[Rfam]
RNA sequence: GCAAUUCUUCGGGGUAGGGUGCAAUUCCCAAUCGGCGGUUAUAGCCCGCGAGCUUUCGAGCAGGAUCUGGUGAAACUCCAGGGCCGACAGUAUAGUCUGGAUGAGAGAAGAAUGCG
Numbered sequence: 001g002c003a004a005u006u007c008u009u010c011g012g013g014g015u016a017g018g019g020u021g022c023a024a025u026u027c028c029c030a031a032u033c034g035g036c037g038g039u040u041a042u043a044g045c046c047c048g049c050g051a052g053c054u055u056u057c058g059a060g061c062a063g064g065a066u067c068u069g070g071u072g073a074a075a076c077u078c079c080a081g082g083g084c085c086g087a088c089a090g091u092a093u094a095g096u097c098u099g100g101a102u103g104a105g106a107g108a109a110g111a112a113u114g115c116g
Stems, first nucleotide, its partner, number of pairs: 004113007017029003031096002033086002035049004044084002054060001066082005088099003
Shown here is a 116-nucleotide sequence from Candidatus Kurthia intestinigallinarum, a member of the family "FMN riboswitch aptamer (RFN element)". NCBI's taxonomy places the organism under Bacteria, Bacillota, Bacilli, Caryophanaceae, Kurthia. Its family is annotated with FMN binding in the Gene Ontology. The RFN element is a highly conserved domain that is found frequently in the 5'-untranslated regions of prokaryotic mRNAs that encode for flavin mononucleotide (FMN) biosynthesis and transport proteins.